[Rfam]
RNA sequence: ACUAUGAAGAGGGAGCUCCCUUCAGUCCAAGCAAAAGAAGCUUAAGAUUCAAUCAGUCUACCGCAUCAUUCACUCAAUUACUAAGGCCUUUCCUUCUUCUAACUAUCAAAACCUUAGCAUUUGUGUGAAUGAGUCAGCAGCUAAUUGAACCAUACUGCCCCCUUUAUGUGGACUAAAGAAAGCUCUCUACAUAUAUUAU
Numbered sequence: 001a002c003u004a005u006g007a008a009g010a011g012g013g014a015g016c017u018c019c020c021u022u023c024a025g026u027c028c029a030a031g032c033a034a035a036a037g038a039a040g041c042u043u044a045a046g047a048u049u050c051a052a053u054c055a056g057u058c059u060a061c062c063g064c065a066u067c068a069u070u071c072a073c074u075c076a077a078u079u080a081c082u083a084a085g086g087c088c089u090u091u092c093c094u095u096c097u098u099c100u101a102a103c104u105a106u107c108a109a110a111a112c113c114u115u116a117g118c119a120u121u122u123g124u125g126u127g128a129a130u131g132a133g134u135c136a137g138c139a140g141c142u143a144a145u146u147g148a149a150c151c152a153u154a155c156u157g158c159c160c161c162c163u164u165u166a167u168g169u170g171g172a173c174u175a176a177a178g179a180a181a182g183c184u185c186u187c188u189a190c191a192u193a194u195a196u197u198a199u
Stems, first nucleotide, its partner, number of pairs: 013185005020178001024174006058140002061137001063135001067131004075123003
Shown here is a 199-nucleotide RNA from Solanum tuberosum, a member of the family "MIR159 microRNA precursor family". Rfam links the family to the GO terms RISC complex and miRNA-mediated post-transcriptional gene silencing. The source organism's lineage runs through Eukaryota, Viridiplantae, Tracheophyta, eudicotyledons and Solanum.